mir-515 microRNA precursor family: an 87-nucleotide sequence from Piliocolobus tephrosceles. The organism belongs to Piliocolobus, within Eukaryota. The base pairs follow the family's consensus structure, which was predicted with RNAalifold. On this family, see Bentwich et al., Nat Genet 2005: "Identification of hundreds of conserved and nonconserved human microRNAs".
RNA sequence: UCUCAUGCAGUCAUUCUCCAAAAGAAAGCACCCUCUGUUGAGUGAAAGCAAGCAGAGUGCCUUCUUUUGGAGCAUUACUGUUUGAGA
Numbered sequence: 001u002c003u004c005a006u007g008c009a010g011u012c013a014u015u016c017u018c019c020a021a022a023a024g025a026a027a028g029c030a031c032c033c034u035c036u037g038u039u040g041a042g043u044g045a046a047a048g049c050a051a052g053c054a055g056a057g058u059g060c061c062u063u064c065u066u067u068u069g070g071a072g073c074a075u076u077a078c079u080g081u082u083u084g085a086g087a
Stems, first nucleotide, its partner, number of pairs: 001087005007081005013075002016072003020068007028060004033055002038052002